[Rfam]
Overview
Shown here is a 104-nucleotide RNA sequence from Pseudomonas aeruginosa, a member of the family "Pseudomonas PA5194 thermometer". From the family's description: Identified in genetic Tet-Tap screening, no obvious similarities to known RNATs. By type it is an RNA thermoregulator. It is one of the family's seed sequences.

RNA sequence: CGUGACAGUCGUACGCCGACCCGGCGCCGAUAGGGGGAAACGAUUUUAUGGAUAAUGCCUCUCCGUUCCAAGCGGCCUGGCAAUGGCGCAAGUUCGCCAUCUGU
Numbered sequence: 001c002g003u004g005a006c007a008g009u010c011g012u013a014c015g016c017c018g019a020c021c022c023g024g025c026g027c028c029g030a031u032a033g034g035g036g037g038a039a040a041c042g043a044u045u046u047u048a049u050g051g052a053u054a055a056u057g058c059c060u061c062u063c064c065g066u067u068c069c070a071a072g073c074g075g076c077c078u079g080g081c082a083a084u085g086g087c088g089c090a091a092g093u094u095c096g097c098c099a100u101c102u103g104u
Stems, first nucleotide, its partner, number of pairs: 014026005027051002031048005056082004064072001066070001083100006